RNA sequence: AAUCAUUGAGUUCAAUGCUUUGGCUCCUCCCUGAACUCAAUACUGAACAUGGCGCUCUCCUCCCUGCCGUGUUCAAAGAUAUGGCCCGCUGCUCCUCCUCCCGCAGCGGGCCUUUUUA
Numbered sequence: 001a002a003u004c005a006u007u008g009a010g011u012u013c014a015a016u017g018c019u020u021u022g023g024c025u026c027c028u029c030c031c032u033g034a035a036c037u038c039a040a041u042a043c044u045g046a047a048c049a050u051g052g053c054g055c056u057c058u059c060c061u062c063c064c065u066g067c068c069g070u071g072u073u074c075a076a077a078g079a080u081a082u083g084g085c086c087c088g089c090u091g092c093u094c095c096u097c098c099u100c101c102c103g104c105a106g107c108g109g110g111c112c113u114u115u116u117u118a
Stems, first nucleotide, its partner, number of pairs: 007039003011035003044075010083112010
Background:
Rfam assigns this 118-nucleotide sequence from Paramesorhizobium deserti to the family "Alphaproteobacterial ar14". A reference for the family is del Val et al. (2012), "A survey of sRNA families in alpha-proteobacteria", RNA Biol. Rfam describes the family as follows. Smr14C2 was renamed NfeR1 (Nodule Formation Efficiency RNA) highly expressed in salt stress and during the symbiotic interaction on legume roots. The match comes from Rfam's covariance-model search (70 bits).